Rfam assigns this 77-nucleotide RNA sequence from Grallaria varia to the family "mir-182 microRNA precursor family". The organism belongs to Grallaria, within Eukaryota. Its Rfam clan is "mir-182 clan". It scores 90 bits against the family's covariance model. Pairs were carried over by alignment from the consensus structure, which was predicted with RNAalifold.
RNA sequence: GGCUGCCUUUGGCAAUGGUAGAACUCACACUGGUGCAGUAGCAGGAUCCGGUGGUUCUAGACUUGCCAACUACGGCC
Number, nucleotide and partner (000 for none) at each position: 001g000002g076003c075004u074005g073006c000007c000008u000009u069010u068011g067012g066013c065014a064015a063016u000017g000018g000019u059020a058021g057022a056023a055024c054025u000026c000027a000028c053029a052030c051031u050032g049033g048034u000035g000036c000037a000038g000039u000040a000041g000042c000043a000044g000045g000046a000047u000048c033049c032050g031051g030052u029053g028054g024055u023056u022057c021058u020059a019060g000061a000062c000063u015064u014065g013066c012067c011068a010069a009070c000071u000072a000073c005074g004075g003076c002077c000
The literature on the family includes a 2009 paper in Mol Reprod Dev by Tesfaye et al., "Identification and expression profiling of microRNAs during bovine oocyte maturation using heterologous approach".
Its family is annotated with RISC complex and miRNA-mediated post-transcriptional gene silencing in the Gene Ontology.